[Rfam]
RNA sequence: UUAGUUAAAGGCAGUCCCAUUCCGGACAGAGCAACAUUCAGUACCGGAAAAUAAAAAAACCGACCUCACCAGUCGGUUUUUUUAU
Numbered sequence: 001u002u003a004g005u006u007a008a009a010g011g012c013a014g015u016c017c018c019a020u021u022c023c024g025g026a027c028a029g030a031g032c033a034a035c036a037u038u039c040a041g042u043a044c045c046g047g048a049a050a051a052u053a054a055a056a057a058a059a060c061c062g063a064c065c066u067c068a069c070c071a072g073u074c075g076g077u078u079u080u081u082u083u084a085u
Stems, first nucleotide, its partner, number of pairs: 021048005029039003053082006060076005
ArsR-gov region gene B: an 85-nucleotide RNA from Kosakonia cowanii. From the family's description: arsR-gov region gene B is transcribed opposite of dinQ (translates into a toxic single transmembrane peptide) with 30 complimentary nucleotides. AgrB appears to repress accumulation of dinQ by RNA interference and counteracts its toxicity. It scores 62 bits against the family's covariance model. The source organism's lineage runs through Bacteria, Pseudomonadati, Pseudomonadota, Enterobacterales and Kosakonia cowanii. Gene Ontology terms of the family: gene silencing by RNA and antisense RNA metabolic process. A reference for the family is Weel-Sneve et al. (2013), "Single transmembrane peptide DinQ modulates membrane-dependent activities", PLoS Genet.